[Rfam]
RNA sequence: CUUCUAUGAAAGACAUGGGUAGUGAGAUGUUUACAUUAAUAUUUCUCAUCUUACUAAUCUGUCUUUCCAAAGAAU
Numbered sequence: 001c002u003u004c005u006a007u008g009a010a011a012g013a014c015a016u017g018g019g020u021a022g023u024g025a026g027a028u029g030u031u032u033a034c035a036u037u038a039a040u041a042u043u044u045c046u047c048a049u050c051u052u053a054c055u056a057a058u059c060u061g062u063c064u065u066u067c068c069a070a071a072g073a074a075u
Stems, first nucleotide, its partner, number of pairs: 008067008017059002021055009
Description
Shown here is a 75-nucleotide RNA from Adineta steineri, a member of the family "mir-71 microRNA precursor family". A search with the family's covariance model found it, with a score of 61 bits. For this family Rfam cites "MicroRNAs of Bombyx mori identified by Solexa sequencing" (Liu et al., BMC Genomics, 2010). The organism belongs to Adineta, within Eukaryota. Gene Ontology terms of the family: RISC complex and miRNA-mediated post-transcriptional gene silencing.